[Rfam]
RNA sequence: CUCGCUACUGAUUGUCCAAACGCAAUUCUUGUUUCAAUAGAGAUUCCCAGCCAAGAAUUGUGUCUGGACAUCUGUGGCUAG
Numbered sequence: 001c002u003c004g005c006u007a008c009u010g011a012u013u014g015u016c017c018a019a020a021c022g023c024a025a026u027u028c029u030u031g032u033u034u035c036a037a038u039a040g041a042g043a044u045u046c047c048c049a050g051c052c053a054a055g056a057a058u059u060g061u062g063u064c065u066g067g068a069c070a071u072c073u074g075u076g077g078c079u080a081g
Base pairs, nucleotide, nucleotide: 002080004078005077006076007075010072011071012070014069015068016067017066018065021062022061023060024059025058026057027056028055029054030053031052
Rfam assigns this 81-nucleotide RNA from Eleutherodactylus coqui to the family "mir-219 microRNA precursor family". A reference for the family is Lim et al. (2003), "Vertebrate microRNA genes", Science. Its family is annotated with RISC complex and miRNA-mediated post-transcriptional gene silencing in the Gene Ontology.